RNA sequence: AUCUGCACUUUUUGUACGUCGCUCUGGAUAAGAGCAUCUGCUAAAUGCCUUGUA
Number, nucleotide and partner (000 for none) at each position: 001a000002u000003c000004u000005g000006c000007a000008c000009u000010u000011u000012u000013u043014g041015u040016a039017c000018g000019u000020c000021g035022c034023u033024c032025u031026g000027g000028a000029u000030a000031a025032g024033a023034g022035c021036a000037u000038c000039u016040g015041c014042u000043a013044a000045a000046u000047g000048c000049c000050u000051u000052g000053u000054a000